[Rfam]
RNA sequence: AGCGAGGCUAGAGUCACGCCUGGACAUUUUCUGUUGUCUUGGUGUGCUAGAGUGCUCGUAGAUUAAAAGUCUUUGCUUAUUCAUUGGCUGUAGUCUGUCGUGGCCCAGCCAAUCACCAACUCAGAUACAUUU
Numbered sequence: 001a002g003c004g005a006g007g008c009u010a011g012a013g014u015c016a017c018g019c020c021u022g023g024a025c026a027u028u029u030u031c032u033g034u035u036g037u038c039u040u041g042g043u044g045u046g047c048u049a050g051a052g053u054g055c056u057c058g059u060a061g062a063u064u065a066a067a068a069g070u071c072u073u074u075g076c077u078u079a080u081u082c083a084u085u086g087g088c089u090g091u092a093g094u095c096u097g098u099c100g101u102g103g104c105c106c107a108g109c110c111a112a113u114c115a116c117c118a119a120c121u122c123a124g125a126u127a128c129a130u131u132u
Base pairs, nucleotide, nucleotide: 002059003058004057005056006055007053008052009051012048013047015046016045017044018043019042020041023038024037025036026035071124072123075120077118083113084112085111086110087109089107090106094102
Dot-bracket structure: .((((((((..((.((((((..((((........))))..))))))))..))).)))))...........((..(.(.....(((((.((...(.......)...)).)))))....).)..))........
Shown here is a 132-nucleotide sequence from Oreochromis niloticus, a member of the family "Small nucleolar RNA SNORA3/SNORA45 family". The match comes from Rfam's covariance-model search (81 bits). The base pairs follow the family's consensus structure, which was predicted with RNAalifold. The organism belongs to Oreochromis, within Eukaryota. The family is grouped with related families in Rfam's "SNORA3 clan".